[Rfam]
Rfam assigns this 88-nucleotide RNA from Coptotermes formosanus to the family "mir-276 microRNA precursor family". It scores 83 bits against the family's covariance model. Pairs were carried over by alignment from the consensus structure, which was predicted with RNAalifold. Rfam 15.1 lists 200 matches to the family in 170 species.
RNA sequence: UUGGUAACUUGCCAGUAGCGAGGUAUAGAGUUCCUACGUGGUACUUGCAAUGGUAGGAACUUCAUACCGUGCUCUUGGACUUGCCAUA
Numbered sequence: 001u002u003g004g005u006a007a008c009u010u011g012c013c014a015g016u017a018g019c020g021a022g023g024u025a026u027a028g029a030g031u032u033c034c035u036a037c038g039u040g041g042u043a044c045u046u047g048c049a050a051u052g053g054u055a056g057g058a059a060c061u062u063c064a065u066a067c068c069g070u071g072c073u074c075u076u077g078g079a080c081u082u083g084c085c086a087u088a
Stems, first nucleotide, its partner, number of pairs: 012078003017073004022068005028062010